[Rfam]
RNA sequence: AACGGGAAAGCCGAAAACCGUAUACGAACAGAGUAGGUA
Numbered sequence: 001a002a003c004g005g006g007a008a009a010g011c012c013g014a015a016a017a018c019c020g021u022a023u024a025c026g027a028a029c030a031g032a033g034u035a036g037g038u039a
Base pairs, nucleotide, nucleotide: 002021003020004019005018010038011037012036
Shown here is a 39-nucleotide sequence, a member of the family "DUF805b RNA". Rfam's curators put it in the seed alignment. The family's RNA type in Rfam is cis-regulatory element. The family is grouped with related families in Rfam's "DUF805 clan".